About this RNA:
nuoG RNA: a 43-nucleotide RNA from Yersinia pestis. By type it is a cis-regulatory element. Rfam's curators put it in the seed alignment. The organism belongs to Yersinia pestis, within Bacteria.
RNA sequence: GAAUUUUUGAUUAACGCCUGCCGUAAGGUGGGUCAUUUGGAAG
Numbered sequence: 001g002a003a004u005u006u007u008u009g010a011u012u013a014a015c016g017c018c019u020g021c022c023g024u025a026a027g028g029u030g031g032g033u034c035a036u037u038u039g040g041a042a043g
Stems, first nucleotide, its partner, number of pairs: 016033007